A member of the RNA family "mir-9/mir-79 microRNA precursor family" from Zapornia atra, 76 nucleotides long. NCBI's taxonomy places the organism under Eukaryota, Gnathostomata, Saurischia, Theropoda, Zapornia.

RNA sequence: GAGUUGUUAUCUUUGGUUAUCUAGCUGUAUGAGUUUUUUGGUCUUCAUAAAGCUAGAUAACCGAAAGUAAAAACUC
Numbered sequence: 001g002a003g004u005u006g007u008u009a010u011c012u013u014u015g016g017u018u019a020u021c022u023a024g025c026u027g028u029a030u031g032a033g034u035u036u037u038u039u040g041g042u043c044u045u046c047a048u049a050a051a052g053c054u055a056g057a058u059a060a061c062c063g064a065a066a067g068u069a070a071a072a073a074c075u076c
Base pairs, nucleotide, nucleotide: 001076002075003074004073005072007070008069009068010067012065013064014063015062016061017060018059019058020057021056022055023054024053025052026051028049029048030047031046032045033044